Rfam assigns this 76-nucleotide sequence from Alligator mississippiensis to the family "Mammalian CPEB3 ribozyme". The organism belongs to Alligator, within Eukaryota. Gene Ontology term of the family: RNA nuclease activity. Pairs were carried over by alignment from the consensus structure, which is taken from published work.
[Rfam]
RNA sequence: ACUGCCAUAAUAGCCAUUGCAGAAGCGUUCAUGUUGCAGCCCCUGUGAGGUUCCAAUGAAUCUGCUAAGUUUUGCU
Numbered sequence: 001a002c003u004g005c006c007a008u009a010a011u012a013g014c015c016a017u018u019g020c021a022g023a024a025g026c027g028u029u030c031a032u033g034u035u036g037c038a039g040c041c042c043c044u045g046u047g048a049g050g051u052u053c054c055a056a057u058g059a060a061u062c063u064g065c066u067a068a069g070u071u072u073u074g075c076u
Stems, first nucleotide, its partner, number of pairs: 013040002019075006025037003048063006